glmS glucosamine-6-phosphate activated ribozyme aptamer: a 155-nucleotide RNA sequence from Clostridium niameyense. The family's RNA type in Rfam is riboswitch.

[Rfam]
RNA sequence: AAACAUAUAAAAGCGCCAGAACUGAGCAUAUAGCUUAGUUGACGAGGAAAUAGGAUUAUCGAAAAUUCGGCGGAUGUCCUAUGGGAUCUCACAGCCCAAGAAGCUAUAAUAAAUAUUAGAAGUGAUUCUAAGAACAAAAAAGCUUUAGUGAGAAC
Numbered sequence: 001a002a003a004c005a006u007a008u009a010a011a012a013g014c015g016c017c018a019g020a021a022c023u024g025a026g027c028a029u030a031u032a033g034c035u036u037a038g039u040u041g042a043c044g045a046g047g048a049a050a051u052a053g054g055a056u057u058a059u060c061g062a063a064a065a066u067u068c069g070g071c072g073g074a075u076g077u078c079c080u081a082u083g084g085g086a087u088c089u090c091a092c093a094g095c096c097c098a099a100g101a102a103g104c105u106a107u108a109a110u111a112a113a114u115a116u117u118a119g120a121a122g123u124g125a126u127u128c129u130a131a132g133a134a135c136a137a138a139a140a141a142g143c144u145u146u147a148g149u150g151a152g153a154a155c
Stems, first nucleotide, its partner, number of pairs: 020040008050082005059070004083096002101145005107139001116131006